[Rfam]
RNA: mir-383 microRNA precursor family
Organism: Hymenochirus boettgeri
RNA sequence: CUCCUCAGAUCAGAAGGUGAUUGUGGCUUUUAGUUGAUAGAAAGUAGCCACAGCACUGCCUGGUCAGAAAGAG
Numbered sequence: 001c002u003c004c005u006c007a008g009a010u011c012a013g014a015a016g017g018u019g020a021u022u023g024u025g026g027c028u029u030u031u032a033g034u035u036g037a038u039a040g041a042a043a044g045u046a047g048c049c050a051c052a053g054c055a056c057u058g059c060c061u062g063g064u065c066a067g068a069a070a071g072a073g
Stems, first nucleotide, its partner, number of pairs: 005068002008065006016057004021053008029043003